A member of the RNA family "Purine riboswitch aptamer" from Cetobacterium ceti, 98 nucleotides long. Taxonomically the source falls in Cetobacterium (Bacteria, Fusobacteriota, Fusobacteriia, Fusobacteriales). A search with the family's covariance model found it, with a score of 62 bits. Rfam links the family to the GO term purine nucleobase biosynthetic process.
RNA sequence: UACGUAAAACCUAGUUUUACUAAUAUAAUUCUGUAAUAGGGUCAGAAGUUUCUACAAAUCGCCGUAAACGAUUUAUUAUUAGGAGGAUGAAUGGAAAA
Numbered sequence: 001u002a003c004g005u006a007a008a009a010c011c012u013a014g015u016u017u018u019a020c021u022a023a024u025a026u027a028a029u030u031c032u033g034u035a036a037u038a039g040g041g042u043c044a045g046a047a048g049u050u051u052c053u054a055c056a057a058a059u060c061g062c063c064g065u066a067a068a069c070g071a072u073u074u075a076u077u078a079u080u081a082g083g084a085g086g087a088u089g090a091a092u093g094g095a096a097a098a
Base pairs, nucleotide, nucleotide: 018084020082021081022080023079024078025077030046031045032044033043056074057073058072059071060070061069